[Rfam]
RNA sequence: UGAAUGAUAAAAAUGGCGCAAAUACAGCGCCAUUUUUACAGGUUAAAAACAUUGCUUUUAUAUUCUGAUUCAGAUAGUCAGUGAGUAUAUCGCGCUACUUCAGGAUGAUGUAGAUCCGAAGAACGCUACAGAAGAGAGGCAUUGUUGCUGGCAAAUAGAAGAAGUAUCGGGGUUUUGUUGCCCCCUUAAAAAACGAAGCCCC
Number, nucleotide and partner (000 for none) at each position: 001u000002g000003a000004a000005u000006g000007a000008u038009a000010a000011a035012a000013a000014u000015g000016g030017c000018g028019c000020a000021a000022a000023u000024a000025c000026a000027g000028c018029g000030c016031c000032a000033u000034u000035u011036u000037u000038a008039c000040a000041g000042g000043u000044u000045a000046a000047a000048a000049a000050c000051a000052u000053u000054g000055c000056u000057u000058u000059u000060a000061u000062a000063u000064u000065c131066u130067g129068a000069u000070u000071c125072a000073g000074a000075u097076a000077g095078u094079c000080a000081g093082u092083g091084a090085g000086u000087a000088u000089a000090u084091c083092g082093c081094g078095c077096u000097a075098c000099u120100u119101c118102a000103g117104g116105a115106u114107g000108a000109u000110g000111u000112a000113g000114a106115u105116c104117c103118g101119a100120a099121g000122a000123a000124c000125g071126c000127u000128a000129c067130a066131g065132a000133a000134g000135a000136g000137a000138g000139g000140c000141a000142u000143u000144g000145u000146u000147g000148c000149u000150g000151g000152c000153a000154a000155a000156u000157a000158g000159a000160a000161g000162a000163a000164g000165u000166a000167u000168c000169g000170g000171g000172g000173u000174u000175u000176u000177g000178u000179u000180g000181c000182c000183c000184c000185c000186u000187u000188a000189a000190a000191a000192a000193a000194c000195g000196a000197a000198g000199c000200c000201c000202c000
RNA: IS009
Organism: Panagrolaimus superbus